The record is an 88-nucleotide RNA from Streptomyces coelicolor, which matches "sodF sRNA" in Rfam. The family's RNA type in Rfam is small RNA. Lineage of the source: Bacteria > Bacillati > Actinomycetota > Kitasatosporales > Streptomyces coelicolor. Rfam links the family to the GO terms regulation of mRNA stability, negative regulation of translation and mRNA binding. The literature on the family includes a 2014 paper in Nucleic Acids Res by Kim et al., "Inverse regulation of Fe- and Ni-containing SOD genes by a Fur family regulator Nur through small RNA processed from 3'UTR of the sodF mRNA".

RNA sequence: AUGUCCUGCUCGUGAUCGUCUUCUCACCUUUCACCGGGCAGGUGCACAACGAAGGGGCUCCCGCAAGCACUCCUGGCGGGGGCCCUUU
Dot-bracket structure: .((.(((((((((((..(.........)..)))).))))))))).......(((((((((((((.((.....)).)))))))))))))
Numbered sequence: 001a002u003g004u005c006c007u008g009c010u011c012g013u014g015a016u017c018g019u020c021u022u023c024u025c026a027c028c029u030u031u032c033a034c035c036g037g038g039c040a041g042g043u044g045c046a047c048a049a050c051g052a053a054g055g056g057g058c059u060c061c062c063g064c065a066a067g068c069a070c071u072c073c074u075g076g077c078g079g080g081g082g083c084c085c086u087u088u
Stems, first nucleotide, its partner, number of pairs: 002044002005042007012034004018028001052088013066074002